[Rfam]
RNA: Bacterial RNase P class A
Organism: Azotobacter vinelandii
RNA sequence: AGAGUCGGUUGGACAGUCGCUGUCCCAUAUUGUUCCUCAAUAUGGGAGGGAGGAAAGUCCGGGCUCCAUAGGGCAGAGUGCCAGGUAACGCCUGGGAGGCGCGAGCCUACGGAAAGUGCCACAGAAAACAACCGCCUAAGCGCGCAAGCGCCGGUAAGGGUGAAAAGGUGCGGUAAGAGCGCACCGCACGGCUGGCAACAGUUCGUGGCUAGGUAAACCCCACUCGGAGCAAGACCAAAUAGGGAUCCAUUGGCGUGGCCCGCGCUGGAUCCGGGUAGGUUGCUAAAGGCGGCCAGCGAUGGUCGUCGUAGAGGAAUGACUGUCCUCGACAGAACCCGGCUUACAGACCGGCUCUCCCC
Numbered sequence: 001a002g003a004g005u006c007g008g009u010u011g012g013a014c015a016g017u018c019g020c021u022g023u024c025c026c027a028u029a030u031u032g033u034u035c036c037u038c039a040a041u042a043u044g045g046g047a048g049g050g051a052g053g054a055a056a057g058u059c060c061g062g063g064c065u066c067c068a069u070a071g072g073g074c075a076g077a078g079u080g081c082c083a084g085g086u087a088a089c090g091c092c093u094g095g096g097a098g099g100c101g102c103g104a105g106c107c108u109a110c111g112g113a114a115a116g117u118g119c120c121a122c123a124g125a126a127a128a129c130a131a132c133c134g135c136c137u138a139a140g141c142g143c144g145c146a147a148g149c150g151c152c153g154g155u156a157a158g159g160g161u162g163a164a165a166a167g168g169u170g171c172g173g174u175a176a177g178a179g180c181g182c183a184c185c186g187c188a189c190g191g192c193u194g195g196c197a198a199c200a201g202u203u204c205g206u207g208g209c210u211a212g213g214u215a216a217a218c219c220c221c222a223c224u225c226g227g228a229g230c231a232a233g234a235c236c237a238a239a240u241a242g243g244g245a246u247c248c249a250u251u252g253g254c255g256u257g258g259c260c261c262g263c264g265c266u267g268g269a270u271c272c273g274g275g276u277a278g279g280u281u282g283c284u285a286a287a288g289g290c291g292g293c294c295a296g297c298g299a300u301g302g303u304c305g306u307c308g309u310a311g312a313g314g315a316a317u318g319a320c321u322g323u324c325c326u327c328g329a330c331a332g333a334a335c336c337c338g339g340c341u342u343a344c345a346g347a348c349c350g351g352c353u354c355u356c357c358c359c
Stems, first nucleotide, its partner, number of pairs: 001355010011344001012324007020050002023047009055342003059339005064229004071261004076225005081095005096110001097108004111220002116218002118214003132159002134155003140151004167185006186209001187207005192201003233281004243272006252266005288307008